This 81-nucleotide sequence from Pipistrellus kuhlii belongs to the Rfam family "mir-574 microRNA precursor family".
Clan: mir-574 microRNA precursor clan.
The literature on the family includes a 2007 paper in Cancer Res by Lui et al., "Patterns of known and novel small RNAs in human cervical cancer".
Its family is annotated with miRNA-mediated post-transcriptional gene silencing and RISC complex in the Gene Ontology.
The family's consensus secondary structure was predicted with RNAalifold.
RNA sequence: AGGUCCCAAGAGAGAGGCAAGGUCUGAUUUGCAGCCUCCAAGGCAGCUGUUGACCAGCUGUUGCCUCUCUCUUUUACUCUG
Numbered sequence: 001a002g003g004u005c006c007c008a009a010g011a012g013a014g015a016g017g018c019a020a021g022g023u024c025u026g027a028u029u030u031g032c033a034g035c036c037u038c039c040a041a042g043g044c045a046g047c048u049g050u051u052g053a054c055c056a057g058c059u060g061u062u063g064c065c066u067c068u069c070u071c072u073u074u075u076a077c078u079c080u081g
Stems, first nucleotide, its partner, number of pairs: 008073013022059001024057003028053002032049004